Rfam assigns this 119-nucleotide RNA sequence from Alkalicoccobacillus porphyridii to the family "Ribosomal protein L20 leader". The organism belongs to Alkalicoccobacillus, within Bacteria. The family's RNA type in Rfam is cis-regulatory leader. About the family: This family is a putative r-protein leader autoregulatory structure found in B. subtilis and other low-GC Gram-positive bacteria. It is located in the 5' untranslated regions of mRNAs encoding initiation factor 3 followed by ribosomal proteins L35 and L20 (infC-rpmI-rplT). A Rho-independent transcription terminator structure that is probably involved in regulation is included at the 3' end.
RNA sequence: AUAGGAAAGCAGAAGCGCCCGCUUCUCACCUGGUCGACGAUCGUUGGCAGGUAUUAUUCGUAUCUUUUUUUGAACGAGUUAUAAGUGUGGGCGCAGUGCGUCUGCACUUUUUUGUGUGG
Numbered sequence: 001a002u003a004g005g006a007a008a009g010c011a012g013a014a015g016c017g018c019c020c021g022c023u024u025c026u027c028a029c030c031u032g033g034u035c036g037a038c039g040a041u042c043g044u045u046g047g048c049a050g051g052u053a054u055u056a057u058u059c060g061u062a063u064c065u066u067u068u069u070u071u072g073a074a075c076g077a078g079u080u081a082u083a084a085g086u087g088u089g090g091g092c093g094c095a096g097u098g099c100g101u102c103u104g105c106a107c108u109u110u111u112u113u114g115u116g117u118g119g
Stems, first nucleotide, its partner, number of pairs: 011026006028052003034047005086106009